[Rfam]
Nucleotides: 098
Base pairs, nucleotide, nucleotide: 019083022080023079024078025077029049030048031047032046033045034044058074059073060072061071062070
Number, partner (000 for none) and nucleotide at each position: 001000a002000a003000a004000c005000u006000u007000g008000a009000u010000a011000g012000c013000a014000a015000c016000c017000g018000a019083u020000u021000a022080u023079g024078u025077a026000u027000a028000a029049u030048c031047u032046c033045a034044a035000u036000a037000a038000u039000a040000u041000g042000g043000u044034u045033u046032g047031a048030g049029a050000g051000u052000c053000u054000c055000u056000a057000c058074c059073a060072g061071g062070a063000a064000c065000c066000u067000a068000a069000a070062u071061c072060c073059u074058g075000a076000c077025u078024a079023c080022a081000a082000c083019g084000g085000a086000a087000c088000a089000c090000u091000u092000g093000u094000g095000g096000u097000c098000a
This 98-nucleotide RNA sequence from Sporosarcina sp. Te-1 belongs to the Rfam family "Purine riboswitch aptamer".
The source organism's lineage runs through Bacteria, Bacillati, Bacillota, Bacilli and Sporosarcina.